This 75-nucleotide RNA from Pseudomonas oryzae belongs to the Rfam family "c-di-GMP-I riboswitch aptamer". Rfam's curators write: GEMM was predicted in a large-scale screen for bacterial structured RNA regulatory elements. Genes associated with GEMM are involved in a diverse array of functions, including chemotaxis regulation, signal transduction, secretion and chitin.
RNA sequence: AUCUUGAAAAGCCUCACCCGUAGCGAUGCGGGGCCGGAAAGCCACGGAUCUCCCUGAGAUGGCCGGGUUGCCGUU
Numbered sequence: 001a002u003c004u005u006g007a008a009a010a011g012c013c014u015c016a017c018c019c020g021u022a023g024c025g026a027u028g029c030g031g032g033g034c035c036g037g038a039a040a041g042c043c044a045c046g047g048a049u050c051u052c053c054c055u056g057a058g059a060u061g062g063c064c065g066g067g068u069u070g071c072c073g074u075u
Base pairs, nucleotide, nucleotide: 012037013036017032018031019030020029021028022027040069041068042067043066045065046064047063048060049059050058051057052056